[Rfam]
RNA sequence: GGGGAUGACUGGAUUCGACAGGGCCGUAGGUGCGAGGAUUGCAGGUCGAGGUCGCCCACGAACUCGUAAAAAGGGGCAGCCAAGUAACUGGCGAGCGCGAACUCGCUCUGGCUGCGUAAUUCACGCAGCCACGUCUGCCCGGACCCUUCCCUGGUGGGUUCGGAGCGGGCGCCGCAAGACCGGGGUGCCCCUGGCCCAAGCGCCGGUGCGGGCCAGGUCAAGCGUGAUCCGGCUCGGCUGACCGGGAUCCUGUCGGUGGGAGCCUGGCAGCGACAGUAGAACACCGACUAAGCCUGUAGCAUAUCCUCGGCUGAACGCUCUGGACGGGGGUUCGACUCCCCCCAUCUCCACCA
Numbered sequence: 001g002g003g004g005a006u007g008a009c010u011g012g013a014u015u016c017g018a019c020a021g022g023g024c025c026g027u028a029g030g031u032g033c034g035a036g037g038a039u040u041g042c043a044g045g046u047c048g049a050g051g052u053c054g055c056c057c058a059c060g061a062a063c064u065c066g067u068a069a070a071a072a073g074g075g076g077c078a079g080c081c082a083a084g085u086a087a088c089u090g091g092c093g094a095g096c097g098c099g100a101a102c103u104c105g106c107u108c109u110g111g112c113u114g115c116g117u118a119a120u121u122c123a124c125g126c127a128g129c130c131a132c133g134u135c136u137g138c139c140c141g142g143a144c145c146c147u148u149c150c151c152u153g154g155u156g157g158g159u160u161c162g163g164a165g166c167g168g169g170c171g172c173c174g175c176a177a178g179a180c181c182g183g184g185g186u187g188c189c190c191c192u193g194g195c196c197c198a199a200g201c202g203c204c205g206g207u208g209c210g211g212g213c214c215a216g217g218u219c220a221a222g223c224g225u226g227a228u229c230c231g232g233c234u235c236g237g238c239u240g241a242c243c244g245g246g247a248u249c250c251u252g253u254c255g256g257u258g259g260g261a262g263c264c265u266g267g268c269a270g271c272g273a274c275a276g277u278a279g280a281a282c283a284c285c286g287a288c289u290a291a292g293c294c295u296g297u298a299g300c301a302u303a304u305c306c307u308c309g310g311c312u313g314a315a316c317g318c319u320c321u322g323g324a325c326g327g328g329g330g331u332u333c334g335a336c337u338c339c340c341c342c343c344a345u346c347u348c349c350a351c352c353a
Base pairs, nucleotide, nucleotide: 001349002348003347004346005345006344007343019322020321021320022319023318024317029312030311031310033309034308035307036306037305038304039303042296043295044294045293046292047066048065049064050063054077055076056075057074109131110130111129112128113127114126115125116124117123132171133170134169135168136167139163140162142160143159144158145157149185150184151183152182153181154180155179190217191216192215193214194213200235202233203232204231205230237271238270239269240268242267243266244265245264252288253287254286257283258282326342327341328340329339330338
Overview:
Shown here is a 353-nucleotide sequence from Thermomicrobium roseum, a member of the family "transfer-messenger RNA". A reference for the family is Felden et al. (1997), "Probing the structure of the Escherichia coli 10Sa RNA (tmRNA)", RNA. The base pairs follow the family's consensus structure, which is taken from published work. It is one of the family's seed sequences.